The family of this 75-nucleotide RNA sequence from Thiomonas bhubaneswarensis is "Fluoride riboswitch aptamer (crcB RNA motif)". Gene Ontology terms of the family: positive regulation of gene expression and response to fluoride. The organism belongs to Thiomonas, within Bacteria.
[Rfam]
RNA sequence: ACAUCAAACGGCGAUGGAGUUCGCCGUUCAAAUGCCUCUGAGGGCUUGCCCCGGGCUGAUGACUCCUACCCGUCU
Number, nucleotide and partner (000 for none) at each position: 001a000002c000003a000004u000005c000006a000007a000008a000009c000010g025011g024012c023013g022014a000015u000016g066017g065018a064019g063020u062021u061022c013023g012024c011025c010026g000027u000028u000029c000030a000031a000032a000033u000034g056035c055036c054037u053038c000039u000040g000041a000042g000043g000044g000045c000046u000047u000048g000049c000050c000051c000052c000053g037054g036055g035056c034057u000058g000059a000060u000061g021062a020063c019064u018065c017066c016067u000068a000069c000070c000071c000072g000073u000074c000075u000